[Rfam]
The family of this 68-nucleotide sequence from Stenotrophomonas panacihumi is "Fluoride riboswitch aptamer (crcB RNA motif)". It scores 54 bits against the family's covariance model.
RNA sequence: CCGCGCACAGGAGAUGGCAUUCCUCCUCGAACCGCCCGCACGCGUGGGCUGAUGAUGCCUGCCAAGCC
Numbered sequence: 001c002c003g004c005g006c007a008c009a010g011g012a013g014a015u016g017g018c019a020u021u022c023c024u025c026c027u028c029g030a031a032c033c034g035c036c037c038g039c040a041c042g043c044g045u046g047g048g049c050u051g052a053u054g055a056u057g058c059c060u061g062c063c064a065a066g067c068c
Stems, first nucleotide, its partner, number of pairs: 010026004016059006034049006